[Rfam]
RNA sequence: UACUUAUCCAGAGAGGUGGAGGGACUGGCCCUGCGAAGCCUCGGCAACGGGUUUGCUAUUUUGCAAAUACCGUGCUAAUUCCUGCAAGCUGAUUGUUUUAUCAGCUUGAAAGAUAAGAA
Numbered sequence: 001u002a003c004u005u006a007u008c009c010a011g012a013g014a015g016g017u018g019g020a021g022g023g024a025c026u027g028g029c030c031c032u033g034c035g036a037a038g039c040c041u042c043g044g045c046a047a048c049g050g051g052u053u054u055g056c057u058a059u060u061u062u063g064c065a066a067a068u069a070c071c072g073u074g075c076u077a078a079u080u081c082c083u084g085c086a087a088g089c090u091g092a093u094u095g096u097u098u099u100a101u102c103a104g105c106u107u108g109a110a111a112g113a114u115a116a117g118a119a
Base pairs, nucleotide, nucleotide: 001119003117004116005115006114007113008112013042014041015040016039017038021031022030023029025084027082028081043076044075045074046073048072049071050068052066053065080111085108086107087106088105089104090103091102092101093100
About this RNA
This 119-nucleotide sequence from Heyndrickxia oleronia belongs to the Rfam family "SAM riboswitch aptamer (S box leader)". It scores 87 bits against the family's covariance model. Gene Ontology term of the family: regulation of gene expression. The SAM riboswitch is found upstream of a number of genes which code for proteins involved in methionine or cysteine biosynthesis in Gram-positive bacteria. The organism belongs to Heyndrickxia, within Bacteria.